ALIL pseudoknot: a 117-nucleotide sequence from Abyssibacter profundi.
The match comes from Rfam's covariance-model search (109 bits).
The family's consensus secondary structure is taken from published work.
RNA sequence: GGCAUAUUUCGCCCAGGCGGAGCUCGACCGCCGACCGAAGUGAUGGUCCGAUUCAUCGACGAUCAUUGUCACGAGUACGGCGUCGAGCCGAUCUGCCGAGUGCUGCCGAUCGCGCCG
Numbered sequence: 001g002g003c004a005u006a007u008u009u010c011g012c013c014c015a016g017g018c019g020g021a022g023c024u025c026g027a028c029c030g031c032c033g034a035c036c037g038a039a040g041u042g043a044u045g046g047u048c049c050g051a052u053u054c055a056u057c058g059a060c061g062a063u064c065a066u067u068g069u070c071a072c073g074a075g076u077a078c079g080g081c082g083u084c085g086a087g088c089c090g091a092u093c094u095g096c097c098g099a100g101u102g103c104u105g106c107c108g109a110u111c112g113c114g115c116c117g
Base pairs, nucleotide, nucleotide: 016032017031018030019029020028078117079116080115081114082113089112090111092109093108095106096105098103